[Rfam]
RNA sequence: GAGGCUAUCCUUUCAGGGAUCAUUUCUACAGUACAUUACUAGAGAAGCUUCUCUGAUCGUGCAGAGUACCAGCAGCCACAAGGAGGAGGCGCAGUGCUCCUUCCUGAGCGUGGAGCCGGCUCUUGGUGUUGGUGUGCUACAACUGCCACUGGCCGACUGUCGCUCUUGCUUUCUCCUUGGAGGGAGCAAGAGGGAAGGAAUGCAGCCUGAGUAGG
Number, nucleotide and partner (000 for none) at each position: 001g000002a040003g039004g000005c000006u035007a000008u033009c000010c031011u030012u000013u000014c000015a027016g026017g025018g024019a000020u000021c000022a000023u000024u018025u017026c016027u015028a000029c000030a011031g010032u000033a008034c000035a006036u000037u000038a000039c003040u002041a000042g000043a000044g000045a000046a000047g000048c000049u065050u064051c000052u000053c000054u061055g000056a000057u000058c000059g000060u000061g054062c000063a000064g050065a049066g000067u000068a000069c000070c000071a000072g000073c000074a000075g000076c214077c000078a212079c211080a000081a000082g000083g000084a000085g000086g000087a000088g000089g000090c000091g000092c000093a000094g203095u202096g201097c000098u199099c198100c197101u196102u195103c194104c193105u192106g000107a000108g163109c162110g161111u000112g000113g000114a000115g000116c000117c000118g154119g153120c152121u151122c000123u000124u148125g147126g146127u145128g143129u142130u141131g140132g000133u000134g000135u000136g000137c000138u000139a000140c131141a130142a129143c128144u000145g127146c126147c125148a124149c000150u000151g121152g120153c119154c118155g000156a000157c000158u000159g000160u000161c110162g109163c108164u000165c000166u189167u188168g187169c186170u185171u184172u183173c182174u181175c000176c000177u000178u000179g000180g000181a174182g173183g172184g171185a170186g169187c168188a167189a166190g000191a000192g105193g104194g103195a102196a101197g100198g099199a098200a000201u096202g095203c094204a000205g000206c000207c000208u000209g000210a000211g079212u078213a000214g076215g000
Shown here is a 215-nucleotide RNA sequence from Chinchilla lanigera, a member of the family "Small nucleolar RNA U3". A search with the family's covariance model found it, with a score of 116 bits. Its Rfam clan is "U3 clan". Rfam's curators write: Small nucleolar RNAs (snoRNAs) are involved in the processing and modification of rRNA in the nucleolus. There are two main classes of snoRNAs: the box C/D class, and the box H/ACA class. U3 snoRNA is a member of the box C/D class. Indeed, the box C/D element is a subset of the six short sequence elements found in all U3 snoRNAs, namely boxes A, A', B, C, C', and D. The U3 snoRNA secondary structure is characterised by a small 5' domain (with boxes A and A'), and a larger 3' domain (with boxes B, C, C', and D), the two domains being linked by a single-stranded hinge. Boxes B and C form the B/C motif, which appears to be exclusive to U3 snoRNAs, and boxes C' and D form the C'/D motif. The latter is functionally similar to the C/D motifs found in other snoRNAs. The 5' domain and the hinge region act as a pre-rRNA-binding domain. The 3' domain has conserved protein-binding sites. Both the box B/C and box C'/D motifs are sufficient for nuclear retention of U3 snoRNA. The box C'/D motif is also necessary for nucleolar localisation, stability and hyper-methylation of U3 snoRNA. Both box B/C and C'/D motifs are involved in specific protein interactions and are necessary for the rRNA processing functions of U3 snoRNA. A reference for the family is Speckmann et al. (1999), "Nuclear retention elements of U3 small nucleolar RNA", Mol Cell Biol. Pairs were carried over by alignment from the consensus structure, which is taken from published work.